RNA sequence: UAUUUCAGAAGAGGUGCGUAGCCUAGGCAGUAGCGUCGAGGGCCAUAUCCGAAGACACGCUAUCAGGGAGGACUACGCCGAGGUGACAAGCGCGAAUGGCCGCGAUUGUCAUCGGUUGCCGGGGGGUGAAACUCCACAACUGUCACUUUAUUUAAUAACAAUAAAGUGGGGUGCUUCUGCUGGG
Numbered sequence: 001u002a003u004u005u006c007a008g009a010a011g012a013g014g015u016g017c018g019u020a021g022c023c024u025a026g027g028c029a030g031u032a033g034c035g036u037c038g039a040g041g042g043c044c045a046u047a048u049c050c051g052a053a054g055a056c057a058c059g060c061u062a063u064c065a066g067g068g069a070g071g072a073c074u075a076c077g078c079c080g081a082g083g084u085g086a087c088a089a090g091c092g093c094g095a096a097u098g099g100c101c102g103c104g105a106u107u108g109u110c111a112u113c114g115g116u117u118g119c120c121g122g123g124g125g126g127u128g129a130a131a132c133u134c135c136a137c138a139a140c141u142g143u144c145a146c147u148u149u150a151u152u153u154a155a156u157a158a159c160a161a162u163a164a165a166g167u168g169g170g171g172u173g174c175u176u177c178u179g180c181u182g183g184g
Base pairs, nucleotide, nucleotide: 006179007178008177009176010175011174016078017077018076019075020074021073022071023070024069030063031062032061033060034059035058036057082113083112084111085110086109087108088107089106091104092103093102114141115140116139117138118137122135123134124133125132143169144168145167146166147165148164149163150162151161

Overview: Lysine riboswitch aptamer: a 184-nucleotide sequence from Paraferrimonas sedimenticola. For this family Rfam cites "An mRNA structure in bacteria that controls gene expression by binding lysine" (Sudarsan et al., Genes Dev, 2003). Gene Ontology term of the family: lysine biosynthetic process. Lineage of the source: Bacteria > Pseudomonadati > Pseudomonadota > Gammaproteobacteria > Paraferrimonas.